[Rfam]
RNA: Guanidine-I riboswitch aptamer
Organism: Pantoea vagans
RNA sequence: GCAAUGGGUCACUAGGGUUCCGAUCGAAAGAUGCUGGUCCGAGAGUGACCGACCGUCCUCUGACGGUUACACGGCGGGAUAAAAGCCCGGGAGGA
Numbered sequence: 001g002c003a004a005u006g007g008g009u010c011a012c013u014a015g016g017g018u019u020c021c022g023a024u025c026g027a028a029a030g031a032u033g034c035u036g037g038u039c040c041g042a043g044a045g046u047g048a049c050c051g052a053c054c055g056u057c058c059u060c061u062g063a064c065g066g067u068u069a070c071a072c073g074g075c076g077g078g079a080u081a082a083a084a085g086c087c088c089g090g091g092a093g094g095a
Stems, first nucleotide, its partner, number of pairs: 007050006015040002020037002022034001023032003051068007070090001072093001076088003